[Rfam]
RNA: abiF RNA
RNA sequence: CCUCCCACACCUCUCAACGAUGUGCACCACGGGAGGU
Numbered sequence: 001c002c003u004c005c006c007a008c009a010c011c012u013c014u015c016a017a018c019g020a021u022g023u024g025c026a027c028c029a030c031g032g033g034a035g036g037u
Stems, first nucleotide, its partner, number of pairs: 001036006008024003
Dot-bracket structure: ((((((.(((...........)))......)))))).